A member of the RNA family "Glycine riboswitch aptamer" from Litorilinea aerophila, 110 nucleotides long.

RNA sequence: UACGGCGCAGCGAGAGAGGGCCUGCUCUGCCAGGACGCCGAAGGUGCAAGCCGACGUGGCAGCCACACCACGCCGGUGACACUCUCAGGCAAAAGGAUCGUUGCGCAUAA
Numbered sequence: 001u002a003c004g005g006c007g008c009a010g011c012g013a014g015a016g017a018g019g020g021c022c023u024g025c026u027c028u029g030c031c032a033g034g035a036c037g038c039c040g041a042a043g044g045u046g047c048a049a050g051c052c053g054a055c056g057u058g059g060c061a062g063c064c065a066c067a068c069c070a071c072g073c074c075g076g077u078g079a080c081a082c083u084c085u086c087a088g089g090c091a092a093a094a095g096g097a098u099c100g101u102u103g104c105g106c107a108u109a110a
Base pairs, nucleotide, nucleotide: 006105007104008103009102010101011100012099013098021034022033023032037090038089039088040086041085044084046082050077051076052075053074
Dot-bracket structure: .....((((((((.......(((........)))..(((((..(.(...((((....................))))....).))).))).......)))))))).....